[Rfam]
RNA sequence: CCACUGUGGCAAAUGAUCGCGGCUUUCGCAAAUGCGGAAGGUGAGGAAAGUCCGGGCUCCAUAGGGCAGGAUGCCGGAUAACGUCCGGUAGAGGCGACUCUAAGGCUAGUGCAACAGAAAUAUACCGCCAAUGCUGCUUGCUUGCGGGCAGCAUUUGGUAAGGGUGGAACGGCGGUGUAAGAGACCACCGCCUCCAAGGUAACGAGGAGGGCACAUGUAAACCCCAUCCGGAGCAAGACCAAACAGAGAGCGACAGAUUUGCCCGAUCUGCUUUCAGGUAGGUCGCUUGAGGCUGCCGGUAACGGCAGUCCUAGAUAGAUGAUCAUUCUUUGUGCAAAUGCACGGUUGUGCAGGCACAAUGACAUAACCCGGCUUAUCGCCGCGGUGGCAAU
Numbered sequence: 001c002c003a004c005u006g007u008g009g010c011a012a013a014u015g016a017u018c019g020c021g022g023c024u025u026u027c028g029c030a031a032a033u034g035c036g037g038a039a040g041g042u043g044a045g046g047a048a049a050g051u052c053c054g055g056g057c058u059c060c061a062u063a064g065g066g067c068a069g070g071a072u073g074c075c076g077g078a079u080a081a082c083g084u085c086c087g088g089u090a091g092a093g094g095c096g097a098c099u100c101u102a103a104g105g106c107u108a109g110u111g112c113a114a115c116a117g118a119a120a121u122a123u124a125c126c127g128c129c130a131a132u133g134c135u136g137c138u139u140g141c142u143u144g145c146g147g148g149c150a151g152c153a154u155u156u157g158g159u160a161a162g163g164g165u166g167g168a169a170c171g172g173c174g175g176u177g178u179a180a181g182a183g184a185c186c187a188c189c190g191c192c193u194c195c196a197a198g199g200u201a202a203c204g205a206g207g208a209g210g211g212c213a214c215a216u217g218u219a220a221a222c223c224c225c226a227u228c229c230g231g232a233g234c235a236a237g238a239c240c241a242a243a244c245a246g247a248g249a250g251c252g253a254c255a256g257a258u259u260u261g262c263c264c265g266a267u268c269u270g271c272u273u274u275c276a277g278g279u280a281g282g283u284c285g286c287u288u289g290a291g292g293c294u295g296c297c298g299g300u301a302a303c304g305g306c307a308g309u310c311c312u313a314g315a316u317a318g319a320u321g322a323u324c325a326u327u328c329u330u331u332g333u334g335c336a337a338a339u340g341c342a343c344g345g346u347u348g349u350g351c352a353g354g355c356a357c358a359a360u361g362a363c364a365u366a367a368c369c370c371g372g373c374u375u376a377u378c379g380c381c382g383c384g385g386u387g388g389c390a391a392u
Stems, first nucleotide, its partner, number of pairs: 001388010011377001012327007020043002023040006048375003052372005057233004064264004069229005074088005089103001090101004104224002109222002111218003125163002127159005132153009171189002174186003190212001191210005198203001237284004246275006255269005291310008

Rfam assigns this 392-nucleotide RNA from Lachnospiraceae bacterium MD335 to the family "Bacterial RNase P class A". Taxonomically the source falls in Lachnospiraceae (Bacteria, Bacillati, Bacillota, Clostridia). A search with the family's covariance model found it, with a score of 306 bits.